The family of this 355-nucleotide RNA sequence from Venturia effusa is "Group I catalytic intron". A search with the family's covariance model found it, with a score of 79 bits.

RNA sequence: GUAACAAGGUUUCCUUUGGAACAAGUGAUCCUCCGUAGACGCUUGCAGAAGCCUGCAGCCCGUAAGGGGUGUACCCCCACGACUGAAAACAAAGGCGAGGUCAUGCAGGUCGGCGCCUUUGCGCCGGCGACACUUUCGAAUUGCGGGGACAUCCUCAGUCGAACCCACCAAACCGGGCCGGUAAACCGGCCCGGUGGCCUCUGCCAGCGGCAGGGGGGACGGUAACAACGGAACCGACGAGGGCGAUCCGCAGCCAACUCCCGCUGGAAACGGGAAGGGGUUCACAGACUAAGUGGAAGUGGGCGGGGGCAAUCCCCCGUUUAAGAUAUAGUCGGGUCCUCCGGGAGACCGGAUG
Numbered sequence: 001g002u003a004a005c006a007a008g009g010u011u012u013c014c015u016u017u018g019g020a021a022c023a024a025g026u027g028a029u030c031c032u033c034c035g036u037a038g039a040c041g042c043u044u045g046c047a048g049a050a051g052c053c054u055g056c057a058g059c060c061c062g063u064a065a066g067g068g069g070u071g072u073a074c075c076c077c078c079a080c081g082a083c084u085g086a087a088a089a090c091a092a093a094g095g096c097g098a099g100g101u102c103a104u105g106c107a108g109g110u111c112g113g114c115g116c117c118u119u120u121g122c123g124c125c126g127g128c129g130a131c132a133c134u135u136u137c138g139a140a141u142u143g144c145g146g147g148g149a150c151a152u153c154c155u156c157a158g159u160c161g162a163a164c165c166c167a168c169c170a171a172a173c174c175g176g177g178c179c180g181g182u183a184a185a186c187c188g189g190c191c192c193g194g195u196g197g198c199c200u201c202u203g204c205c206a207g208c209g210g211c212a213g214g215g216g217g218g219a220c221g222g223u224a225a226c227a228a229c230g231g232a233a234c235c236g237a238c239g240a241g242g243g244c245g246a247u248c249c250g251c252a253g254c255c256a257a258c259u260c261c262c263g264c265u266g267g268a269a270a271c272g273g274g275a276a277g278g279g280g281u282u283c284a285c286a287g288a289c290u291a292a293g294u295g296g297a298a299g300u301g302g303g304c305g306g307g308g309g310c311a312a313u314c315c316c317c318c319g320u321u322u323a324a325g326a327u328a329u330a331g332u333c334g335g336g337u338c339c340u341c342c343g344g345g346a347g348a349c350c351g352g353a354u355g
Base pairs, nucleotide, nucleotide: 001013003011004010005009131301132300133299134298135297137295138294142252143251144250145249146248147247152243153242154241155240156239253281254280259275260274261273262272263271285334287333288332289331290330291329303320304319305318306317307316308315309314340353341352342351343350344349

NCBI's taxonomy places the organism under Eukaryota, Opisthokonta, dothideomyceta, Pleosporomycetidae, Venturia.
For this family Rfam cites "Self-splicing of group I introns" (Cech, Annu Rev Biochem, 1990).